[Rfam]
RNA sequence: GGGAGUACAUGGGGUCUGGUGGCCUCGUCAGUCUUCAAAAUUGGUCGGCGUUAUGACGAAUAACGUUGGUGUGUUCGAUUCGCACGUACUCCC
Numbered sequence: 001g002g003g004a005g006u007a008c009a010u011g012g013g014g015u016c017u018g019g020u021g022g023c024c025u026c027g028u029c030a031g032u033c034u035u036c037a038a039a040a041u042u043g044g045u046c047g048g049c050g051u052u053a054u055g056a057c058g059a060a061u062a063a064c065g066u067u068g069g070u071g072u073g074u075u076c077g078a079u080u081c082g083c084a085c086g087u088a089c090u091c092c093c
Base pairs, nucleotide, nucleotide: 001093002092003091004090005089006088007087008086011026012025013024014023015022016021027045028044029043030042031041032040047067048066049065050064051063070084071083072082073081